[Rfam]
RNA: Small nucleolar RNA SNORA53
Organism: Pangasianodon hypophthalmus
RNA sequence: CACACGUUCCUUAGAUCCACCUCUGGGGAAUCCUUCAGCUCUGGUGCUGCUGCUCUCUUGAGUGUUGCAGCUCCAGGGUGGAGGCUCCCAGCAGCUUUUCCGGCUGUACAGUUGGAGGUGCUUGAGUCAUUGGCGUGUGAGAGGAGUCUACCUGCUCCUUCAGCCCAGUUGCUGCCCUGGCUCCCAUAGUGGCCUUCACCAGGGUAGACAAGCUGGAGGGCGGACAAG
Dot-bracket structure: .(((((((.(((((...(((((((((((.....((((..(((((..((((..(.(....)...)..))))..))))).))))...)))))((((((.....)))))).......)))))).))))).....))))))).............(((((..(.((((.......(((((((((...(((...)))......)))))))))....)))).).))))).....